Rfam assigns this 54-nucleotide sequence from Coregonus sp. 'balchen' to the family "UnaL2 LINE 3' element".
RNA sequence: CUUGCGGUCUGUUGUAAGUCGCUCUGGAUAAGAGCGUCUGCUAAAUGACUAAAA
Numbered sequence: 001c002u003u004g005c006g007g008u009c010u011g012u013u014g015u016a017a018g019u020c021g022c023u024c025u026g027g028a029u030a031a032g033a034g035c036g037u038c039u040g041c042u043a044a045a046u047g048a049c050u051a052a053a054a
Stems, first nucleotide, its partner, number of pairs: 013043001014041003020036006
About this RNA:
Taxonomically the source falls in Coregonus (Eukaryota, Vertebrata, Salmoniformes, Coregoninae). On this family, see Baba et al., RNA 2004: "Solution structure of an RNA stem-loop derived from the 3' conserved region of eel LINE UnaL2".